[Rfam]
RNA sequence: CCGGCGGGAGCCCCGGGGGGCUAGCCCUCCCCUAUAACCGCAAACGGGCUCACGGCGGGGGGCGUAAACCUACGGGGGCGCCUGCGGCGGUAUACAGCUGGCCCGCACACCUACUAAUGCUCCCUGGGCCUGCGGGACACCCCGCUCUGUGCUAAACCCCUCGUAGGAGGGGUGAAGCACAGGAAAGCCGAAACGGGUUAGGCCCGGGAGGGAGCGGCCCUAAGGCUGGCGGGGUGUGUUCGUAGCAACCCAGGGUAAGAGGUAGGUGAUGCGGGUUAGCUGUAUACCGCCCGGCCACCCUGGAGGGACGCCGCCGG
Number, nucleotide and partner (000 for none) at each position: 001c317002c316003g315004g314005c313006g312007g311008g000009a000010g063011c062012c061013c060014c059015g033016g032017g031018g030019g029020g028021c000022u000023a000024g000025c000026c000027c000028u020029c019030c018031c017032c016033u015034a000035u000036a000037a000038c058039c057040g056041c055042a000043a000044a000045c000046g000047g000048g000049c000050u000051c000052a000053c000054g000055g041056c040057g039058g038059g014060g013061g012062g011063c010064g000065u000066a000067a000068a000069c307070c306071u305072a000073c303074g000075g300076g299077g298078g000079c000080g295081c294082c293083u000084g290085c289086g288087g000088c000089g000090g287091u286092a285093u284094a283095c282096a281097g280098c279099u278100g277101g000102c275103c274104c273105g272106c271107a270108c268109a267110c266111c265112u264113a263114c262115u261116a000117a000118u000119g000120c000121u257122c000123c255124c254125u253126g000127g251128g250129c000130c245131u244132g243133c242134g241135g240136g239137a237138c236139a235140c234141c233142c232143c231144g230145c000146u000147c182148u181149g180150u179151g178152c177153u176154a000155a000156a173157c172158c171159c170160c169161u168162c167163g000164u000165a000166g000167g162168a161169g160170g159171g158172g157173u156174g000175a000176a153177g152178c151179a150180c149181a148182g147183g000184a000185a000186a227187g226188c225189c224190g000191a000192a000193a000194c000195g220196g219197g218198u217199u000200a000201g000202g000203c212204c211205c210206g000207g000208g000209a000210g205211g204212g203213a000214g000215c000216g000217g198218c197219c196220c195221u000222a000223a000224g189225g188226c187227u186228g000229g000230c144231g143232g142233g141234g140235u139236g138237u137238g000239u136240u135241c134242g133243u132244a131245g130246c000247a000248a000249c000250c128251c127252a000253g125254g124255g123256u000257a121258a000259g000260a000261g115262g114263u113264a112265g111266g110267u109268g108269a000270u107271g106272c105273g104274g103275g102276u000277u100278a099279g098280c097281u096282g095283u094284a093285u092286a091287c090288c086289g085290c084291c000292c000293g082294g081295c080296c000297a000298c077299c076300c075301u000302g000303g073304a000305g071306g070307g069308a000309c000310g000311c007312c006313g005314c004315c003316g002317g001
RNA: Archaeal signal recognition particle RNA
Organism: Infirmifilum lucidum